Shown here is a 296-nucleotide RNA sequence from Papilio machaon, a member of the family "Metazoan signal recognition particle RNA". The signal recognition particle (SRP) is a universally conserved ribonucleoprotein. It is involved in the co-translational targeting of proteins to membranes. The family's consensus secondary structure is taken from published work. Its family is annotated with SRP-dependent cotranslational protein targeting to membrane, signal sequence recognition and signal recognition particle, endoplasmic reticulum targeting in the Gene Ontology. Taxonomically the source falls in Papilio (Eukaryota, Bilateria, Allotriocarida, Papilionini). The family's RNA type in Rfam is non-coding RNA gene. For this family Rfam cites "SRPDB: Signal Recognition Particle Database" (Rosenblad et al., Nucleic Acids Res, 2003). It scores 241 bits against the family's covariance model.
RNA sequence: ACUGGGAGUGUGGCAUCUCCUGUAAUCCGGCUUCUCGGAGGUCGGGCUUGGAGGAUGGUUUGAGGUCGGGAAUCCUGGUACCGUGUGGCUCAUGUAGACUGGACGUCCACACUAAGCCCGGUAUUGAUAUGGAACAUCCGGAGGAAUCUGGAAGUUGCAGGUUAACUAAGGAGGGGCGAACCGGGCCAGGGGGGAAACCCAGCAGCCAAAAGUCCCCGUAUCGGGCAGUAGUGGGAUAGCGGCUGGGAGUGAGUGCACGGUGUCAGCCCGAUCAAUAUAAUCAGACCCUUUCCUUU
Numbered sequence: 001a002c003u004g005g006g007a008g009u010g011u012g013g014c015a016u017c018u019c020c021u022g023u024a025a026u027c028c029g030g031c032u033u034c035u036c037g038g039a040g041g042u043c044g045g046g047c048u049u050g051g052a053g054g055a056u057g058g059u060u061u062g063a064g065g066u067c068g069g070g071a072a073u074c075c076u077g078g079u080a081c082c083g084u085g086u087g088g089c090u091c092a093u094g095u096a097g098a099c100u101g102g103a104c105g106u107c108c109a110c111a112c113u114a115a116g117c118c119c120g121g122u123a124u125u126g127a128u129a130u131g132g133a134a135c136a137u138c139c140g141g142a143g144g145a146a147u148c149u150g151g152a153a154g155u156u157g158c159a160g161g162u163u164a165a166c167u168a169a170g171g172a173g174g175g176g177c178g179a180a181c182c183g184g185g186c187c188a189g190g191g192g193g194g195a196a197a198c199c200c201a202g203c204a205g206c207c208a209a210a211a212g213u214c215c216c217c218g219u220a221u222c223g224g225g226c227a228g229u230a231g232u233g234g235g236a237u238a239g240c241g242g243c244u245g246g247g248a249g250u251g252a253g254u255g256c257a258c259g260g261u262g263u264c265a266g267c268c269c270g271a272u273c274a275a276u277a278u279a280a281u282c283a284g285a286c287c288c289u290u291u292c293c294u295u296u
Base pairs, nucleotide, nucleotide: 001042002041003040004021005020006019007018008017026039027038028037044294045293046292050288051287056283057282058281059280060279064273065272066271067270068269069268070267075266076265077264078263079262080261081260082259083258084257085256086255087254089253090252091251092250093249095247099246100245101244102243104241105240106239107235108234110233111232112231113230114229116226117225118224119223120222121221122220123219124218125164126163127162128161130159131158133156134155135154137152138151139150140149141148142147166170173216174215175214176213177212184207185206186205191200192199193198